A member of the RNA family "c-di-AMP riboswitch aptamer (ydaO/yuaA leader)" from Streptomyces sp. NRRL WC-3618, 172 nucleotides long.
NCBI's taxonomy places the organism under Bacteria, Actinomycetes, Kitasatosporales, Streptomycetaceae, Streptomyces.
It scores 62 bits against the family's covariance model.
[Rfam]
RNA sequence: CGCUGCGAAGCGCCGUAGGCAGGAGCGGGGGACCCAAGGUAGGCGCCGCACCGGGCAGUUGUCCGGAGCGGCUCGGGGUGAAGCCGUACGCCGCCCGCAAGGGGCGUACGGCCGGGCAACUCAACCGGCCCGAACCCGACAGCUCACCUCGCAGGCGUCGGUGAGGGGAUUU
Numbered sequence: 001c002g003c004u005g006c007g008a009a010g011c012g013c014c015g016u017a018g019g020c021a022g023g024a025g026c027g028g029g030g031g032a033c034c035c036a037a038g039g040u041a042g043g044c045g046c047c048g049c050a051c052c053g054g055g056c057a058g059u060u061g062u063c064c065g066g067a068g069c070g071g072c073u074c075g076g077g078g079u080g081a082a083g084c085c086g087u088a089c090g091c092c093g094c095c096c097g098c099a100a101g102g103g104g105c106g107u108a109c110g111g112c113c114g115g116g117c118a119a120c121u122c123a124a125c126c127g128g129c130c131c132g133a134a135c136c137c138g139a140c141a142g143c144u145c146a147c148c149u150c151g152c153a154g155g156c157g158u159c160g161g162u163g164a165g166g167g168g169a170u171u172u
Stems, first nucleotide, its partner, number of pairs: 001157004011023001025152006035075001076137003084111009114131004

Rfam describes the family as follows. This family represents a conserved RNA structure found upstream of the ydaO and yuaA genes in Bacillus subtilis and related genes in other bacteria.